[Rfam]
RNA: mir-263 microRNA precursor family
Organism: Leptotrombidium deliense
RNA sequence: UUACCUUUUUCCUUGGCACUGGAAGAAUUCACCGAUGGAUCAAAAACUCGUGGGUUCUUGGGUGCCAAAGACGAAGGAAU
Numbered sequence: 001u002u003a004c005c006u007u008u009u010u011c012c013u014u015g016g017c018a019c020u021g022g023a024a025g026a027a028u029u030c031a032c033c034g035a036u037g038g039a040u041c042a043a044a045a046a047c048u049c050g051u052g053g054g055u056u057c058u059u060g061g062g063u064g065c066c067a068a069a070g071a072c073g074a075a076g077g078a079a080u
Stems, first nucleotide, its partner, number of pairs: 004077005010071001013068006020061001022059001025056002029053004034048001